[Rfam]
RNA: SAM riboswitch aptamer (S box leader)
Organism: Prauserella isguenensis
RNA sequence: CGCUCAUCAAGAGGGGCAGAGGGAACGGCCCGUAGAAGCCCCGGCAACCGGCGUCAGCCUGUCAUCUCGAUUCCGCGAGGUAGCUGACGACAACGGUGCUAAUUCCGACCCGUGCCAGCGGGGCAGAUGAGGA
Numbered sequence: 001c002g003c004u005c006a007u008c009a010a011g012a013g014g015g016g017c018a019g020a021g022g023g024a025a026c027g028g029c030c031c032g033u034a035g036a037a038g039c040c041c042c043g044g045c046a047a048c049c050g051g052c053g054u055c056a057g058c059c060u061g062u063c064a065u066c067u068c069g070a071u072u073c074c075g076c077g078a079g080g081u082a083g084c085u086g087a088c089g090a091c092a093a094c095g096g097u098g099c100u101a102a103u104u105c106c107g108a109c110c111c112g113u114g115c116c117a118g119c120g121g122g123g124c125a126g127a128u129g130a131g132g133a
Stems, first nucleotide, its partner, number of pairs: 003131006013042005021031003026107003043100004048096002051091001104125001109122005